[Rfam]
RNA: DUF3800-XI RNA
Organism: Lachnospiraceae bacterium NK4A136
RNA sequence: UGGGCUGGUCGAGAGACCCAGGUCCAUCUGCGGCGGGGAAGUUCCCC
Numbered sequence: 001u002g003g004g005c006u007g008g009u010c011g012a013g014a015g016a017c018c019c020a021g022g023u024c025c026a027u028c029u030g031c032g033g034c035g036g037g038g039a040a041g042u043u044c045c046c047c
Base pairs, nucleotide, nucleotide: 001026002025003024004023005022006021007018008017009016010015